[Rfam]
RNA sequence: UAAAAAAAGGAGCAAUAACGCCCUCUUGAUAAAACAAGAGGAAAGCUAUUGCUCCUUUUU
Numbered sequence: 001u002a003a004a005a006a007a008a009g010g011a012g013c014a015a016u017a018a019c020g021c022c023c024u025c026u027u028g029a030u031a032a033a034a035c036a037a038g039a040g041g042a043a044a045g046c047u048a049u050u051g052c053u054c055c056u057u058u059u060u
Stems, first nucleotide, its partner, number of pairs: 006058012023040006

This 60-nucleotide RNA from Artemisia annua belongs to the Rfam family "Plastid-psbA-4 3UTR RNA". The literature on the family includes a 2023 paper in Plant Commun by Richter et al., "Retrograde signaling in plants: A critical review focusing on the GUN pathway and beyond". Its Rfam clan is "Plastid-psbA 3UTR RNA clan". The match comes from Rfam's covariance-model search (61 bits). The organism belongs to Artemisia, within Eukaryota. Rfam classes the family as a cis-regulatory element. From the family's description: Plastid psbA-4 is a non-coding RNA (ncRNA) present in plastids. It was identified in inverted repeat sequences in the 3 prime untranslate region (3UTR) of photosystem II quinone-binding protein (psbA).